The record is an 80-nucleotide RNA from Chroococcidiopsis thermalis, which matches "Photosynthesis regulatory RNA1" in Rfam. Rfam's curators write: Formerly known as Syr1 discovered in Synechocystis sp PCC 6803, is a regulatory factor controlling photosynthetic functions. PsrR1 interacts with the ribosome binding regions of several photosynthesis-related mRNAs. In particular, psaL mRNA is processed by RNase E only in the presence of PsrR1. It is annotated as a small RNA. Rfam 15.1 lists 92 matches to the family in 57 species.

RNA sequence: AAGAUUUAAGUUCGAUAACAGUAGCUCCCAUCGGCAUUUAAUUCCUCCUCUUGCACCUCGGCUUUUGAGUCGAGGUUUUU
Numbered sequence: 001a002a003g004a005u006u007u008a009a010g011u012u013c014g015a016u017a018a019c020a021g022u023a024g025c026u027c028c029c030a031u032c033g034g035c036a037u038u039u040a041a042u043u044c045c046u047c048c049u050c051u052u053g054c055a056c057c058u059c060g061g062c063u064u065u066u067g068a069g070u071c072g073a074g075g076u077u078u079u080u
Stems, first nucleotide, its partner, number of pairs: 055076008